[Rfam]
RNA: FMN riboswitch aptamer (RFN element)
RNA sequence: CGCGGUCUUCAGGGCGGGGUGGAAUUCCCCACCGGCGGUAGGCGGUGCGGGAGGUCUCCCCGCGCUGCGAGCCCGCGAGCGCUCCGCAUUCCCUCUGGGAUGCGGAGGUCAGCAGACCCAGUGCGACGCGGCCGAAAGCAAACCGUUUUCAGCCCGUUCAGUCUGGGGCCGACGGUCACAGUCCGGAUGAAAGAAGAUGGGC
Numbered sequence: 001c002g003c004g005g006u007c008u009u010c011a012g013g014g015c016g017g018g019g020u021g022g023a024a025u026u027c028c029c030c031a032c033c034g035g036c037g038g039u040a041g042g043c044g045g046u047g048c049g050g051g052a053g054g055u056c057u058c059c060c061c062g063c064g065c066u067g068c069g070a071g072c073c074c075g076c077g078a079g080c081g082c083u084c085c086g087c088a089u090u091c092c093c094u095c096u097g098g099g100a101u102g103c104g105g106a107g108g109u110c111a112g113c114a115g116a117c118c119c120a121g122u123g124c125g126a127c128g129c130g131g132c133c134g135a136a137a138g139c140a141a142a143c144c145g146u147u148u149u150c151a152g153c154c155c156g157u158u159c160a161g162u163c164u165g166g167g168g169c170c171g172a173c174g175g176u177c178a179c180a181g182u183c184c185g186g187a188u189g190a191a192a193g194a195a196g197a198u199g200g201g202c
Stems, first nucleotide, its partner, number of pairs: 003200001005198006017029003031182002033171002035076004071169002079113002117167005173185003